A member of the RNA family "tRNA" from Mumia sp. ZJ1417, 83 nucleotides long. Lineage of the source: Bacteria > Bacillati > Actinomycetota > Propionibacteriales > Mumia.
RNA sequence: GCCGGGUUGGCGGAAUGGUAGACGCGGUGGUCUCAAAAACCACUGUCCGAAAGGAUGUGCGGGUUCGAGUCCCGCACCCGGCA
Dot-bracket structure: (((((((..(((..........))).(((((.......)))))...............(((((.......)))))))))))).
Numbered sequence: 001g002c003c004g005g006g007u008u009g010g011c012g013g014a015a016u017g018g019u020a021g022a023c024g025c026g027g028u029g030g031u032c033u034c035a036a037a038a039a040c041c042a043c044u045g046u047c048c049g050a051a052a053g054g055a056u057g058u059g060c061g062g063g064u065u066c067g068a069g070u071c072c073c074g075c076a077c078c079c080g081g082c083a
Stems, first nucleotide, its partner, number of pairs: 001082007010025003027043005059075005

Record summary: It scores 60 bits against the family's covariance model. Rfam classes the family as a transfer RNA.